This 119-nucleotide RNA belongs to the Rfam family "RT-4 RNA". It is annotated as a small RNA. The sequence is in the family's curated seed alignment.
RNA sequence: UACACCACUGACGAUUGAGACAUCGUUAUAUCCGCAAUUAUUUGUUUUGGUGAGUGAAAAUUAACUCGAUACAGGGCACGCGGUAAAGCGGUCGCACCUGCCGCGUGUAGGGGAUAGAA
Numbered sequence: 001u002a003c004a005c006c007a008c009u010g011a012c013g014a015u016u017g018a019g020a021c022a023u024c025g026u027u028a029u030a031u032c033c034g035c036a037a038u039u040a041u042u043u044g045u046u047u048u049g050g051u052g053a054g055u056g057a058a059a060a061u062u063a064a065c066u067c068g069a070u071a072c073a074g075g076g077c078a079c080g081c082g083g084u085a086a087a088g089c090g091g092u093c094g095c096a097c098c099u100g101c102c103g104c105g106u107g108u109a110g111g112g113g114a115u116a117g118a119a
Stems, first nucleotide, its partner, number of pairs: 003056003010027006032050002035044003065112003076108010088095002